[Rfam]
RNA sequence: ACCCGGGCCGACCGGCCCGGGUGGACUGACGCCGGUACCUGACACGGCCGGCGCAG
Numbered sequence: 001a002c003c004c005g006g007g008c009c010g011a012c013c014g015g016c017c018c019g020g021g022u023g024g025a026c027u028g029a030c031g032c033c034g035g036u037a038c039c040u041g042a043c044a045c046g047g048c049c050g051g052c053g054c055a056g
Stems, first nucleotide, its partner, number of pairs: 001022009026056003030053007

The family of this 56-nucleotide sequence from Embleya scabrispora is "L17-Actino-Proteobacteria ribosomal protein leader". For this family Rfam cites "Discovery of 20 novel ribosomal leader candidates in bacteria and archaea" (Eckert and Weinberg, BMC Microbiol, 2020). It is annotated as a cis-regulatory leader. Lineage of the source: Bacteria > Bacillati > Kitasatosporales > Streptomycetaceae > Embleya scabrispora. It is one of the family's seed sequences.